[Rfam]
RNA sequence: UACAUCCUGCGAUGUACGUUACGGCUUAUAACUUGUUUUGAACCAAUGGCUGUAUUACGGGAGACCUAGAUUGAAGCGUAGCUGACAUGCCCUCGAAAAGGGAUCUCAAAAGCGGUUCUGCGGACACCCACCUGCGAGAGCGGGUUCAGAAACAAGCAAGUCGGACGGCAUGGCGGGUUUACU
Number, nucleotide and partner (000 for none) at each position: 001u000002a000003c000004a179005u000006c177007c176008u175009g174010c173011g000012a171013u170014g169015u168016a000017c167018g166019u165020u000021a000022c000023g000024g000025c000026u000027u000028a000029u000030a000031a000032c000033u000034u000035g153036u152037u151038u150039u148040g147041a146042a145043c144044c143045a000046a000047u000048g000049g000050c000051u000052g000053u000054a000055u000056u000057a000058c000059g129060g128061g127062a000063g125064a000065c123066c122067u000068a000069g000070a119071u000072u000073g118074a117075a116076g000077c114078g113079u112080a000081g000082c000083u000084g000085a106086c000087a000088u000089g000090c102091c101092c100093u099094c000095g000096a000097a000098a000099a093100g092101g091102g090103a000104u000105c000106u085107c000108a000109a000110a000111a000112g079113c078114g077115g000116u075117u074118c073119u070120g000121c000122g066123g065124a000125c063126a000127c061128c060129c059130a000131c000132c000133u000134g000135c000136g000137a000138g000139a000140g000141c000142g000143g044144g043145u042146u041147c040148a039149g000150a038151a037152a036153c035154a000155a000156g000157c000158a000159a000160g000161u000162c000163g000164g000165a019166c018167g017168g015169c014170a013171u012172g000173g010174c009175g008176g007177g006178u000179u004180u000181a000182c000183u000
Rfam assigns this 183-nucleotide sequence from Paenibacillus baekrokdamisoli to the family "6S / SsrS RNA". About the family: E. coli 6S RNA was the first non coding RNA to be sequenced, but its function was unknown until recently. The organism belongs to Paenibacillus, within Bacteria. The base pairs follow the family's consensus structure, which is taken from published work.